Shown here is a 73-nucleotide RNA sequence from Pantoea sp. Nvir, a member of the family "tpke11". In Yersinia located in ICR upstream dnaJ (chaperone)gene. Has temperature responsive RNA structure. Rfam classes the family as a small RNA. Gene Ontology term of the family: response to temperature stimulus. It scores 50 bits against the family's covariance model. The organism belongs to Pantoea, within Bacteria.
[Rfam]
RNA sequence: GACAGCUGUUGAAACCAGCACGGGUGUAGGAAAUUCUCUACGCCCGUGCGAGCAUGUGAAGGGUUAAAAAUGG
Numbered sequence: 001g002a003c004a005g006c007u008g009u010u011g012a013a014a015c016c017a018g019c020a021c022g023g024g025u026g027u028a029g030g031a032a033a034u035u036c037u038c039u040a041c042g043c044c045c046g047u048g049c050g051a052g053c054a055u056g057u058g059a060a061g062g063g064u065u066a067a068a069a070a071u072g073g
Stems, first nucleotide, its partner, number of pairs: 005015001018049009028039003